The family of this 34-nucleotide RNA sequence is "DUF805b RNA". Pairs were carried over by alignment from the consensus structure, which is taken from published work.

[Rfam]
RNA sequence: AAAGCGGAACCCGAAAAGCUAUUUAGAGUAGGGA
Numbered sequence: 001a002a003a004g005c006g007g008a009a010c011c012c013g014a015a016a017a018g019c020u021a022u023u024u025a026g027a028g029u030a031g032g033g034a
Base pairs, nucleotide, nucleotide: 003020004019005018010033011032012031
Dot-bracket structure: ..(((....[[[.....)))..........]]].